[Rfam]
RNA sequence: UGCCAGUGAUGACUUUUCUUUCUGACACCUCGUAUGAGCUGCUCAGCAGCAUCUGAUUAGGGCUUUCAGUCUGAGGCGU
Numbered sequence: 001u002g003c004c005a006g007u008g009a010u011g012a013c014u015u016u017u018c019u020u021u022c023u024g025a026c027a028c029c030u031c032g033u034a035u036g037a038g039c040u041g042c043u044c045a046g047c048a049g050c051a052u053c054u055g056a057u058u059a060g061g062g063c064u065u066u067c068a069g070u071c072u073g074a075g076g077c078g079u
Base pairs, nucleotide, nucleotide: 001078002077003076004075038050039049040048041047042046
Dot-bracket structure: ((((.................................(((((...)))))........................)))).